[Rfam]
RNA sequence: GUAGCUAUGGCGACAUGGUACCCAGCACCAUUGCUGGGAAGAUCUUUGGCUCCAUCUGUUCUCUGAGCGGGGUGCUGGUCAUCGCUCUGCCCGUCCCGGUCAUCGUGUCCAAC
Numbered sequence: 001g002u003a004g005c006u007a008u009g010g011c012g013a014c015a016u017g018g019u020a021c022c023c024a025g026c027a028c029c030a031u032u033g034c035u036g037g038g039a040a041g042a043u044c045u046u047u048g049g050c051u052c053c054a055u056c057u058g059u060u061c062u063c064u065g066a067g068c069g070g071g072g073u074g075c076u077g078g079u080c081a082u083c084g085c086u087c088u089g090c091c092c093g094u095c096c097c098g099g100u101c102a103u104c105g106u107g108u109c110c111a112a113c
Stems, first nucleotide, its partner, number of pairs: 001113002004109001006107005012101003017096002020094002036076002039073001048062002

This 113-nucleotide sequence from Muraenolepis orangiensis belongs to the Rfam family "Potassium channel RNA editing signal". Its family is annotated with adenosine to inosine editing in the Gene Ontology. About the family: This family represents a group of sequences related to the human potassium channel Kv1.1 hairpin element which directs the efficient modification of an adenosine to inosine by an adenosine deaminase acting on RNA (ADAR). The source organism's lineage runs through Eukaryota, Vertebrata, Acanthomorphata, Paracanthopterygii and Muraenolepis. Rfam 15.1 lists 14,095 matches to the family in 1,000 species.